RNA sequence: AGAUCGGGAGGCCUUCGGUGGGACGGAGGCCGGGAAUUGAUCGGAACUUUUGUCGUCUCGUAGGGGCGUGUCGCUGUAGCCCGACAGCGCGCACA
Numbered sequence: 001a002g003a004u005c006g007g008g009a010g011g012c013c014u015u016c017g018g019u020g021g022g023a024c025g026g027a028g029g030c031c032g033g034g035a036a037u038u039g040a041u042c043g044g045a046a047c048u049u050u051u052g053u054c055g056u057c058u059c060g061u062a063g064g065g066g067c068g069u070g071u072c073g074c075u076g077u078a079g080c081c082c083g084a085c086a087g088c089g090c091g092c093a094c095a
Stems, first nucleotide, its partner, number of pairs: 002042004010031008068094004072089005
Background:
The record is a 95-nucleotide sequence from Primorskyibacter sedentarius, which matches "Rhodo-rpoB RNA" in Rfam. Taxonomically the source falls in Primorskyibacter (Bacteria, Pseudomonadota, Alphaproteobacteria, Roseobacteraceae). By type it is a cis-regulatory element.